[Rfam]
RNA sequence: UCAGUGGACGUCGAGUUAGAGCUUAACGACGUAACAAACCACCGCCGGACAUGUCGAAGAGG
Numbered sequence: 001u002c003a004g005u006g007g008a009c010g011u012c013g014a015g016u017u018a019g020a021g022c023u024u025a026a027c028g029a030c031g032u033a034a035c036a037a038a039c040c041a042c043c044g045c046c047g048g049a050c051a052u053g054u055c056g057a058a059g060a061g062g
Base pairs, nucleotide, nucleotide: 004042005041006040007039009031010030011029012028013027014023015022016021
Rfam assigns this 62-nucleotide RNA sequence to the family "cow-rumen-1 RNA". Pairs were carried over by alignment from the consensus structure, which is taken from published work.